[Rfam]
RNA sequence: GCUGCAUGCCCUUCUUGGGCGUUUCCUCCCUAGACUUGGGCCGCCUUCGGGCGGCCUUUUUUUUGCGGCUU
Numbered sequence: 001g002c003u004g005c006a007u008g009c010c011c012u013u014c015u016u017g018g019g020c021g022u023u024u025c026c027u028c029c030c031u032a033g034a035c036u037u038g039g040g041c042c043g044c045c046u047u048c049g050g051g052c053g054g055c056c057u058u059u060u061u062u063u064u065g066c067g068g069c070u071u
Base pairs, nucleotide, nucleotide: 008020009019010018011017039056040055041054042053043052044051045050
The record is a 71-nucleotide RNA sequence from Lichenifustis flavocetrariae, which matches "Makes More Granules Regulator RNA (mmgR)" in Rfam. For this family Rfam cites "Expression of the small regulatory RNA gene mmgR is regulated negatively by AniA and positively by NtrC in Sinorhizobium meliloti 2011" (Ceizel Borella et al., Microbiology, 2018). The match comes from Rfam's covariance-model search (66 bits).